Rfam assigns this 140-nucleotide RNA sequence from Carlito syrichta to the family "U12 minor spliceosomal RNA". The family is grouped with related families in Rfam's "U2 clan". Gene Ontology terms of the family: mRNA branch site recognition, U12 snRNP and pre-mRNA branch point binding. Taxonomically the source falls in Carlito (Eukaryota, Opisthokonta, Eumetazoa, Vertebrata). The literature on the family includes a 2002 paper in Mol Cell by Otake et al., "The divergent U12-type spliceosome is required for pre-mRNA splicing and is essential for development in Drosophila".

RNA sequence: AUGCCUUAAACUUAUGAGUAAGGAAAAUAAUGACUCUGGGUGAUGCCCAAAUUCUUACUGCUAAUGUGAGAUAAAUUUUUGAGUGGGUUAGGUUGACCCUAAGGUGACCAGCAUGAUGCCUGGGAGUUGCAAUCUGCCCG
Numbered sequence: 001a002u003g004c005c006u007u008a009a010a011c012u013u014a015u016g017a018g019u020a021a022g023g024a025a026a027a028u029a030a031u032g033a034c035u036c037u038g039g040g041u042g043a044u045g046c047c048c049a050a051a052u053u054c055u056u057a058c059u060g061c062u063a064a065u066g067u068g069a070g071a072u073a074a075a076u077u078u079u080u081g082a083g084u085g086g087g088u089u090a091g092g093u094u095g096a097c098c099c100u101a102a103g104g105u106g107a108c109c110a111g112c113a114u115g116a117u118g119c120c121u122g123g124g125a126g127u128u129g130c131a132a133u134c135u136g137c138c139c140g
Base pairs, nucleotide, nucleotide: 004023005022006021007020008019032053033052035050038047039046054070055069056068057067058066084140085139086138087137088136090135091134092133093132094131095130099124100123102121103120104119105118106117108115